[Rfam]
RNA sequence: CGCCUUCCUCGGGGGAGCCUGACGGCUGAGAGGUUGCGCGACGCAACGACCCCAGAACCUGAUCCCGCUAGUACGGGCGUAGGGAGAGGCGAUGCCGGCAAA
Number, nucleotide and partner (000 for none) at each position: 001c000002g000003c000004c000005u000006u000007c089008c088009u087010c086011g053012g052013g051014g050015g000016a000017g026018c025019c024020u000021g000022a000023c000024g019025g018026c017027u000028g000029a000030g000031a000032g000033g047034u046035u045036g044037c043038g000039c000040g000041a000042c000043g037044c036045a035046a034047c033048g000049a000050c014051c013052c012053c011054a000055g000056a000057a000058c083059c082060u081061g080062a000063u000064c077065c076066c075067g074068c000069u000070a000071g000072u000073a000074c067075g066076g065077g064078c000079g000080u061081a060082g059083g058084g000085a000086g010087a009088g008089g007090c000091g000092a000093u000094g000095c000096c000097g000098g000099c000100a000101a000102a000
RNA: TPP riboswitch aptamer (THI element)
Organism: Oceanibaculum pacificum